About this RNA: This 83-nucleotide sequence from Branchiostoma belcheri belongs to the Rfam family "mir-7 microRNA precursor family". Rfam describes the family as follows. This family represents the microRNA (miRNA) precursor mir-7. Rfam 15.1 lists 2,589 matches to the family in 797 species. Rfam's curators put it in the seed alignment. The literature on the family includes a 2001 paper in Science by Lagos-Quintana et al., "Identification of novel genes coding for small expressed RNAs".

RNA sequence: AUGUUCGGUAUGGAAGACUAGUGAUUUUGUUGUUGUGUGUCGUUGCAAACAACAGUAAAUCACAGUCUUCCUUACGGUGCAUU
Numbered sequence: 001a002u003g004u005u006c007g008g009u010a011u012g013g014a015a016g017a018c019u020a021g022u023g024a025u026u027u028u029g030u031u032g033u034u035g036u037g038u039g040u041c042g043u044u045g046c047a048a049a050c051a052a053c054a055g056u057a058a059a060u061c062a063c064a065g066u067c068u069u070c071c072u073u074a075c076g077g078u079g080c081a082u083u
Stems, first nucleotide, its partner, number of pairs: 003080002006077001008075003012071002015068005021063007029056008